RNA sequence: GCCGGCGUGGCUCAAUUGGUAGAGCAGCUGACUUGUAAUCAGCAGGUUAUCGGUUCGAGUCCGAUCGCCGGCU
Numbered sequence: 001g002c003c004g005g006c007g008u009g010g011c012u013c014a015a016u017u018g019g020u021a022g023a024g025c026a027g028c029u030g031a032c033u034u035g036u037a038a039u040c041a042g043c044a045g046g047u048u049a050u051c052g053g054u055u056c057g058a059g060u061c062c063g064a065u066c067g068c069c070g071g072c073u
Stems, first nucleotide, its partner, number of pairs: 001072007010025004027043005049065005
RNA: tRNA